[Rfam]
Shown here is an 88-nucleotide RNA sequence from Asparagus officinalis, a member of the family "Small nucleolar RNA SNORD34". The family's RNA type in Rfam is C/D-box small nucleolar RNA. The literature on the family includes a 2002 paper in Mol Cell Biol by Galardi et al., "Purified box C/D snoRNPs are able to reproduce site-specific 2'-O-methylation of target RNA in vitro". Its Rfam clan is "SNORD34 clan". Rfam links the family to the GO terms RNA processing and nucleolus. A search with the family's covariance model found it, with a score of 49 bits. Rfam's curators write: snoRNA U34 is found in intron 5 of the ribosomal protein L13a gene in humans. Rfam 15.1 lists 1,319 matches to the family in 583 species.
RNA sequence: GGUGGCCUGUGAUGAUCUGUGAACAUGUUGCCUACAUUGGUUGAUGCGAUUGCCAUGAUAAAAAAGAUUGUUUCUUUCUGAGGCCUCG
Numbered sequence: 001g002g003u004g005g006c007c008u009g010u011g012a013u014g015a016u017c018u019g020u021g022a023a024c025a026u027g028u029u030g031c032c033u034a035c036a037u038u039g040g041u042u043g044a045u046g047c048g049a050u051u052g053c054c055a056u057g058a059u060a061a062a063a064a065a066g067a068u069u070g071u072u073u074c075u076u077u078c079u080g081a082g083g084c085c086u087c088g
Base pairs, nucleotide, nucleotide: 002087004085005084006083007082